The family of this 83-nucleotide sequence from Synechococcus sp. WH 7805 is "Cyanobacterial ribosomal protein S1 leader". From the family's description: cyano-S1 is a ncRNA recognized in the 5-prime region of genes encoding 30S ribosomal protein S1, it has been proposed as an cis regulation element.

RNA sequence: CUCUGUAAAGUGAGGGAUUGCCUGGACCAGGUCGGCGGGCCUGCUCCAGUUUCCUUCGCUCUGCUCAACGGGCAGACCGCCAC
Numbered sequence: 001c002u003c004u005g006u007a008a009a010g011u012g013a014g015g016g017a018u019u020g021c022c023u024g025g026a027c028c029a030g031g032u033c034g035g036c037g038g039g040c041c042u043g044c045u046c047c048a049g050u051u052u053c054c055u056u057c058g059c060u061c062u063g064c065u066c067a068a069c070g071g072g073c074a075g076a077c078c079g080c081c082a083c
Base pairs, nucleotide, nucleotide: 024047025046026045028043029042030041031040032039034081035080036079037078038077061075062074063073064072065071
NCBI's taxonomy places the organism under Bacteria, Cyanobacteriota, Cyanophyceae, Synechococcales, Synechococcus. By type it is a cis-regulatory leader. On this family, see Weinberg et al., Nucleic Acids Res 2007: "Identification of 22 candidate structured RNAs in bacteria using the CMfinder comparative genomics pipeline". Rfam's curators put it in the seed alignment.